[Rfam]
RNA sequence: GGAGUUGGCCGAACAGUCGCUGUAUCGCUUUGGCGGUAUGGAGGAAAGUCCGGGCUCCACAGGGCAGAGUGCCAGGUAACGCCUGGGAGGCGUGAGCCUACGGAAAGUGCAGCAGAGAGUAGACCGCCUAAGCGCGCAAGCGCCGGUAAGGGUGAAAGGGUGCGGUAAGAGCGCACCGCGCGACUGGCAACAGUUCGUGGCAUGGUAAACCCCACUCGGAGCAAGACCAAAUAGGAACCCUAUGGUGCGGCCCGCACUGGGUUCGGGUAGGUUGCUACAGGCAGUCAGUGAUGGCUGUCGCAGAGGAAUGACUGUUCUCGACAGAACCCGGCUUACAGGCCAACUCCUAUU
Numbered sequence: 001g002g003a004g005u006u007g008g009c010c011g012a013a014c015a016g017u018c019g020c021u022g023u024a025u026c027g028c029u030u031u032g033g034c035g036g037u038a039u040g041g042a043g044g045a046a047a048g049u050c051c052g053g054g055c056u057c058c059a060c061a062g063g064g065c066a067g068a069g070u071g072c073c074a075g076g077u078a079a080c081g082c083c084u085g086g087g088a089g090g091c092g093u094g095a096g097c098c099u100a101c102g103g104a105a106a107g108u109g110c111a112g113c114a115g116a117g118a119g120u121a122g123a124c125c126g127c128c129u130a131a132g133c134g135c136g137c138a139a140g141c142g143c144c145g146g147u148a149a150g151g152g153u154g155a156a157a158g159g160g161u162g163c164g165g166u167a168a169g170a171g172c173g174c175a176c177c178g179c180g181c182g183a184c185u186g187g188c189a190a191c192a193g194u195u196c197g198u199g200g201c202a203u204g205g206u207a208a209a210c211c212c213c214a215c216u217c218g219g220a221g222c223a224a225g226a227c228c229a230a231a232u233a234g235g236a237a238c239c240c241u242a243u244g245g246u247g248c249g250g251c252c253c254g255c256a257c258u259g260g261g262u263u264c265g266g267g268u269a270g271g272u273u274g275c276u277a278c279a280g281g282c283a284g285u286c287a288g289u290g291a292u293g294g295c296u297g298u299c300g301c302a303g304a305g306g307a308a309u310g311a312c313u314g315u316u317c318u319c320g321a322c323a324g325a326a327c328c329c330g331g332c333u334u335a336c337a338g339g340c341c342a343a344c345u346c347c348u349a350u351u
Base pairs, nucleotide, nucleotide: 001347002346003345004344005343006342007341008340009339010338011336012316013315014314015313016312017311018310020041021040022039023038024037025036026035027034028033046334047333048332050331051330052329053328054327055221056220057219058218062253063252064251065250067217068216069215070214071213072086073085074084075083076082087101088099089098090097091096102212103211107210108209109206110205124151125150126147127146128145132143133142134141135140159177160176161175162174163173164172178201179199180198181197182196183195184193185192186191225273226272227271228270235264236263237262238261239260240259244258245257246256247255248254280299281298282297283296284295285294286293287292
The family of this 351-nucleotide RNA sequence from Halopseudomonas bauzanensis is "Bacterial RNase P class A".
The family's RNA type in Rfam is ribozyme.
Lineage of the source: Bacteria > Pseudomonadati > Gammaproteobacteria > Pseudomonadaceae > Halopseudomonas.